[Rfam]
RNA sequence: GUCGGCUAUGGUGACAUGUACCCGGUGACGGUCCUGGGUAAGAUUGUGGGCUCGUUUUGCGCGAUGGCUGGGGUAUUGAUGAUCGGUUUUACCGUGCCCAGUCUCGUGAACAAU
Numbered sequence: 001g002u003c004g005g006c007u008a009u010g011g012u013g014a015c016a017u018g019u020a021c022c023c024g025g026u027g028a029c030g031g032u033c034c035u036g037g038g039u040a041a042g043a044u045u046g047u048g049g050g051c052u053c054g055u056u057u058u059g060c061g062c063g064a065u066g067g068c069u070g071g072g073g074u075a076u077u078g079a080u081g082a083u084c085g086g087u088u089u090u091a092c093c094g095u096g097c098c099c100a101g102u103c104u105c106g107u108g109a110a111c112a113a114u
Base pairs, nucleotide, nucleotide: 001114002113004111007108008107009106010105011104013103014102015101018097019096020095021094037077038076039075040074050062051061
RNA: Potassium channel RNA editing signal
Organism: Dreissena polymorpha